[Rfam]
RNA sequence: GUGGUACUCAAACUGUGGGGGCACUUUCUGGUCUAGGGAGGGAAGUGCCGCCAUUUUUUGAGUGUUAC
Numbered sequence: 001g002u003g004g005u006a007c008u009c010a011a012a013c014u015g016u017g018g019g020g021g022c023a024c025u026u027u028c029u030g031g032u033c034u035a036g037g038g039a040g041g042g043a044a045g046u047g048c049c050g051c052c053a054u055u056u057u058u059u060g061a062g063u064g065u066u067a068c
Stems, first nucleotide, its partner, number of pairs: 004065009015054004020049009
RNA: mir-290 microRNA precursor family
Organism: Sus scrofa